[Rfam]
Nucleotides: 097
Base pairs, nucleotide, nucleotide: 018083019082020081021080022079023078024077025076029047030046031045032044033043034042056073057072058071059070060069061068
Number, partner (000 for none) and nucleotide at each position: 001000a002000u003000a004000a005000a006000u007000u008000a009000g010000g011000a012000a013000u014000g015000u016000a017000a018083a019082a020081c021080a022079u023078g024077u025076a026000u027000a028000a029047a030046u031045u032044c033043a034042c035000a036000g037000a038000a039000u040000g041000g042034g043033u044032g045031a046030a047029u048000g049000u050000a051000u052000c053000u054000a055000c056073c057072g058071g059070c060069u061068g062000c063000c064000g065000u066000a067000u068061c069060a070059g071058c072057u073056g074000a075000c076025u077024a078023u079022g080021u081020g082019u083018u084000u085000c086000u087000a088000u089000c090000c091000a092000a093000u094000a095000u096000u097000u